Nucleotides: 096
Base pairs, nucleotide, nucleotide: 001096002095003094004093005092006091009089010088023081024080025079027077028076029075030069031068032067033066034065035064036063041057042056043055044054045053046052
Number, partner (000 for none) and nucleotide at each position: 001096a002095g003094a004093g005092g006091u007000a008000u009089g010088c011000a012000g013000u014000a015000a016000u017000a018000a019000c020000u021000u022000a023081u024080a025079g026000a027077g028076u029075g030069c031068u032067u033066u034065g035064g036063u037000g038000u039000u040000c041057c042056c043055u044054c045053g046052g047000a048000g049000u050000a051000u052046c053045c054044g055043g056042g057041g058000c059000u060000u061000g062000a063036g064035c065034c066033a067032a068031a069030g070000a071000a072000u073000a074000c075029c076028a077027c078000c079025c080024u081023a082000u083000a084000a085000g086000a087000c088010g089009c090000u091006a092005c093004u094003u095002c096001u
The family of this 96-nucleotide RNA is "DUF3800-V RNA". Pairs were carried over by alignment from the consensus structure, which is taken from published work.